Plastid-rps18 3UTR RNA: a 57-nucleotide RNA sequence from Protea cynaroides. A reference for the family is Richter et al. (2023), "Retrograde signaling in plants: A critical review focusing on the GUN pathway and beyond", Plant Commun. It is annotated as a cis-regulatory element. The family's consensus secondary structure was predicted with LocARNA. Lineage of the source: Eukaryota > Tracheophyta > Spermatophyta > Magnoliopsida > Protea.

RNA sequence: UGCAAGUAUUUUACGAUUAAGAAGUAACUGUUUUUUGUACAGACCAUGUACAAGAAG
Numbered sequence: 001u002g003c004a005a006g007u008a009u010u011u012u013a014c015g016a017u018u019a020a021g022a023a024g025u026a027a028c029u030g031u032u033u034u035u036u037g038u039a040c041a042g043a044c045c046a047u048g049u050a051c052a053a054g055a056a057g
Base pairs, nucleotide, nucleotide: 018037019036020035021034022033023032024031025030
Plastid rps18 is a non-coding RNA (ncRNA) present in plastids. It was identified as a short stem-loop motif in the 3 prime untranslate region (3UTR) of rps18 gene.